A member of the RNA family "c-di-AMP riboswitch aptamer (ydaO/yuaA leader)" from Streptomyces sp. F001, 158 nucleotides long. NCBI's taxonomy places the organism under Bacteria, Bacillati, Actinomycetota, Streptomycetaceae, Streptomyces.
RNA sequence: CGCGCAAACCCACCCGUGUACGGCAGGAGCGGGGGACCCACAGGUACAAAUGCCUGUUCCGGUCUCCGGAACGGCUAGGGGUACAGCCGCGCUUCGGCGCGGCCGGGCAUCUCCAGUCCGCACCCGACAGCUCACCUCGCAGGCGCCGGAGAGGAAUU
Numbered sequence: 001c002g003c004g005c006a007a008a009c010c011c012a013c014c015c016g017u018g019u020a021c022g023g024c025a026g027g028a029g030c031g032g033g034g035g036a037c038c039c040a041c042a043g044g045u046a047c048a049a050a051u052g053c054c055u056g057u058u059c060c061g062g063u064c065u066c067c068g069g070a071a072c073g074g075c076u077a078g079g080g081g082u083a084c085a086g087c088c089g090c091g092c093u094u095c096g097g098c099g100c101g102g103c104c105g106g107g108c109a110u111c112u113c114c115a116g117u118c119c120g121c122a123c124c125c126g127a128c129a130g131c132u133c134a135c136c137u138c139g140c141a142g143g144c145g146c147c148g149g150a151g152a153g154g155a156a157u158u
Stems, first nucleotide, its partner, number of pairs: 001145003009027002029140006039078001079125003087102004105119004